[Rfam]
RNA: Plastid-psbN 5UTR RNA
Organism: Manihot esculenta
RNA sequence: UGCGACACCCAUCAAAGGAGUAGUUCUCUAUCUGGAGCUACUUUAUCGUAUUCUGAAUUC
Numbered sequence: 001u002g003c004g005a006c007a008c009c010c011a012u013c014a015a016a017g018g019a020g021u022a023g024u025u026c027u028c029u030a031u032c033u034g035g036a037g038c039u040a041c042u043u044u045a046u047c048g049u050a051u052u053c054u055g056a057a058u059u060c
Base pairs, nucleotide, nucleotide: 017044018043019042020041021040022039023038024037025036026035027034